RNA sequence: GAGGCAGUAUCAGAGGAUACGAACUGCACUCUGCGUAUGAAUUAACUUUAGCGUUUGAAAUUCAUGAAUCAUUGGAUUUACCUUCAUAACUGUGUUAUCGGUUACGUUGGAUUCUGCUCUGAGCCGUAAGGACCGAGACAGAAGG
Numbered sequence: 001g002a003g004g005c006a007g008u009a010u011c012a013g014a015g016g017a018u019a020c021g022a023a024c025u026g027c028a029c030u031c032u033g034c035g036u037a038u039g040a041a042u043u044a045a046c047u048u049u050a051g052c053g054u055u056u057g058a059a060a061u062u063c064a065u066g067a068a069u070c071a072u073u074g075g076a077u078u079u080a081c082c083u084u085c086a087u088a089a090c091u092g093u094g095u096u097a098u099c100g101g102u103u104a105c106g107u108u109g110g111a112u113u114c115u116g117c118u119c120u121g122a123g124c125c126g127u128a129a130g131g132a133c134c135g136a137g138a139c140a141g142a143a144g145g
Stems, first nucleotide, its partner, number of pairs: 001031003004027005010022002114141003117137003121133001124131002
RNA: pan motif
Organism: Paenibacillus wynnii